[Rfam]
RNA: mir-147 microRNA precursor family
RNA sequence: UAUGAGUAUAGUGGAAAUAUUUCUGUACAGACUAAAUUGUGAACACCAGUCUGUGGAAAUGCAUCUGCUACAUUUUUU
Number, nucleotide and partner (000 for none) at each position: 001u000002a077003u000004g075005a074006g073007u072008a000009u070010a069011g068012u067013g066014g065015a064016a000017a000018u061019a060020u059021u058022u057023c056024u055025g054026u053027a052028c000029a050030g000031a000032c049033u048034a000035a000036a000037u000038u000039g000040u000041g000042a000043a000044c000045a000046c000047c000048a033049g032050u029051c000052u027053g026054u025055g024056g023057a022058a021059a020060u019061g018062c000063a000064u015065c014066u013067g012068c011069u010070a009071c000072a007073u006074u005075u004076u000077u002078u000